[Rfam]
Rfam assigns this 148-nucleotide RNA from Neoarthrinium moseri to the family "Small nucleolar RNA snR80". The match comes from Rfam's covariance-model search (44 bits). Pairs were carried over by alignment from the consensus structure, which was predicted with WAR. For this family Rfam cites "Genome-wide searching for pseudouridylation guide snoRNAs: analysis of the Saccharomyces cerevisiae genome" (Schattner et al., Nucleic Acids Res, 2004).

RNA sequence: GGAUCCUUGCCUACACUCUGAGAUAUACCCAGCUCUCCAUGGUUUAUUUCAAUUUUUGCGUCAAGGAAGAAGAAUCUGUCCGCUUACUCACCGCAACCCCCAGCCGCUUGGCACAUGGGGGUUGAGGUCCAUUUUCUCUGGCCAACAU
Numbered sequence: 001g002g003a004u005c006c007u008u009g010c011c012u013a014c015a016c017u018c019u020g021a022g023a024u025a026u027a028c029c030c031a032g033c034u035c036u037c038c039a040u041g042g043u044u045u046a047u048u049u050c051a052a053u054u055u056u057u058g059c060g061u062c063a064a065g066g067a068a069g070a071a072g073a074a075u076c077u078g079u080c081c082g083c084u085u086a087c088u089c090a091c092c093g094c095a096a097c098c099c100c101c102a103g104c105c106g107c108u109u110g111g112c113a114c115a116u117g118g119g120g121g122u123u124g125a126g127g128u129c130c131a132u133u134u135u136c137u138c139u140g141g142c143c144a145a146c147a148u
Stems, first nucleotide, its partner, number of pairs: 007064003019051006027043003078143001080141002091127002094124001096122006
Overview
NCBI's taxonomy places the organism under Eukaryota, Dikarya, Ascomycota, Apiosporaceae, Neoarthrinium.